[Rfam]
RNA sequence: CUGCAGCCAAUUAAGCUGAUGGAGUUCCUUUCCUCAUGGGGACCUGGUGUGCAAUGGCUGCAAACAGCUGCUUCUUUGGUAUUGUUUGCAGCCUGUUAUUGUAUGGGUGGCUCUAAGGGACCUUGGAGACAGGC
Numbered sequence: 001c002u003g004c005a006g007c008c009a010a011u012u013a014a015g016c017u018g019a020u021g022g023a024g025u026u027c028c029u030u031u032c033c034u035c036a037u038g039g040g041g042a043c044c045u046g047g048u049g050u051g052c053a054a055u056g057g058c059u060g061c062a063a064a065c066a067g068c069u070g071c072u073u074c075u076u077u078g079g080u081a082u083u084g085u086u087u088g089c090a091g092c093c094u095g096u097u098a099u100u101g102u103a104u105g106g107g108u109g110g111c112u113c114u115a116a117g118g119g120a121c122c123u124u125g126g127a128g129a130c131a132g133g134c
Stems, first nucleotide, its partner, number of pairs: 002053004019048002022045001025042004078122003089110001091108004